The record is a 90-nucleotide RNA sequence from Vitis vinifera, which matches "MIR398 microRNA precursor family" in Rfam. The family has 14 seed sequences and 627 matches in Rfam 15.1. On this family, see Jones-Rhoades and Bartel, Mol Cell 2004: "Computational identification of plant microRNAs and their targets, including a stress-induced miRNA". NCBI's taxonomy places the organism under Eukaryota, Magnoliopsida, eudicotyledons, rosids, Vitis.
[Rfam]
RNA sequence: AGGUGUCCUACAGGAGUGACCUGAGAAUCACAUGCCCGCAUCACCCAUCUUUGCUCUCAUGUGUUCUCAGGUCGCCCCUGCUGGACUCCC
Dot-bracket structure: ......((..((((.((((...((((..(((((.........................))))).))))...)))).))))..))......